[Rfam]
RNA sequence: GCGCCCGUAGCUCAGCUGGAUAGAGCAACAGAUUGCGGUUCUGUAGGUCGGGAGUUCGAAUCUCUCCGGGCGCG
Numbered sequence: 001g002c003g004c005c006c007g008u009a010g011c012u013c014a015g016c017u018g019g020a021u022a023g024a025g026c027a028a029c030a031g032a033u034u035g036c037g038g039u040u041c042u043g044u045a046g047g048u049c050g051g052g053a054g055u056u057c058g059a060a061u062c063u064c065u066c067c068g069g070g071c072g073c074g
Stems, first nucleotide, its partner, number of pairs: 001073007010026004028044005050066005

Record summary
tRNA: a 74-nucleotide sequence from Nitratiruptor sp. SB155-2. NCBI's taxonomy places the organism under Bacteria, Pseudomonadati, Campylobacterota, Epsilonproteobacteria, Nitratiruptor. Rfam classes the family as a transfer RNA. Pairs were carried over by alignment from the consensus structure, which is taken from published work.